[Rfam]
RNA sequence: UCGUCAGGCUCAGUCCCCUCCCGAUAAACCUUUAAAUAGAGAUCUUCCCCAGGGGCGGCCCCGGCUU
Numbered sequence: 001u002c003g004u005c006a007g008g009c010u011c012a013g014u015c016c017c018c019u020c021c022c023g024a025u026a027a028a029c030c031u032u033u034a035a036a037u038a039g040a041g042a043u044c045u046u047c048c049c050c051a052g053g054g055g056c057g058g059c060c061c062c063g064g065c066u067u
Stems, first nucleotide, its partner, number of pairs: 003065003007061002010058002013056005023047002026045001030041004
This 67-nucleotide sequence from Phyllostomus discolor belongs to the Rfam family "mir-484 microRNA precursor family". The match comes from Rfam's covariance-model search (78 bits). Gene Ontology terms of the family: miRNA-mediated post-transcriptional gene silencing and RISC complex. The literature on the family includes a 2010 paper in BMC Genomics by Sharbati et al., "Deciphering the porcine intestinal microRNA transcriptome".